[Rfam]
RNA: Mammalian CPEB3 ribozyme
Organism: Crocodylus porosus
RNA sequence: AGAGUAAGGUCUUAGCAGAAUCAUUGUGUGGCCUGUCAGAUUUCAAGAAAUCUGAAAAUUCUGCU
Number, nucleotide and partner (000 for none) at each position: 001a000002g000003a000004g000005u000006a000007a000008g033009g032010u031011c030012u000013u000014a065015g064016c063017a062018g061019a060020a059021u000022c028023a027024u000025u000026g000027u023028g022029u000030g011031g010032c009033c008034u000035g000036u000037c054038a053039g052040a051041u050042u049043u048044c000045a000046a000047g000048a043049a042050a041051u040052c039053u038054g037055a000056a000057a000058a000059u020060u019061c018062u017063g016064c015065u014